[Rfam]
RNA sequence: GGGUCCGGCCGUGACUGGCGUACCUGAGGUGGGCGCAACCACCGGGGAGCGGCCGAGACAUCCCGCUGGUGCACCGCCCGCCUGGGUGCCUGGG
Numbered sequence: 001g002g003g004u005c006c007g008g009c010c011g012u013g014a015c016u017g018g019c020g021u022a023c024c025u026g027a028g029g030u031g032g033g034c035g036c037a038a039c040c041a042c043c044g045g046g047g048a049g050c051g052g053c054c055g056a057g058a059c060a061u062c063c064c065g066c067u068g069g070u071g072c073a074c075c076g077c078c079c080g081c082c083u084g085g086g087u088g089c090c091u092g093g094g
Base pairs, nucleotide, nucleotide: 004057006055007054008053009052010051011050012049015046016045017082018081019080020079029042030041031040032039071089072088073087074086075085
Rfam assigns this 94-nucleotide sequence from Cellulomonas aerilata to the family "ZMP/ZTP riboswitch aptamer (pfl RNA motif)". The source organism's lineage runs through Bacteria, Bacillati, Actinomycetota, Actinomycetes and Cellulomonas. The match comes from Rfam's covariance-model search (52 bits). On this family, see Jones and Ferre-D'Amare, Nat Struct Mol Biol 2015: "Recognition of the bacterial alarmone ZMP through long-distance association of two RNA subdomains".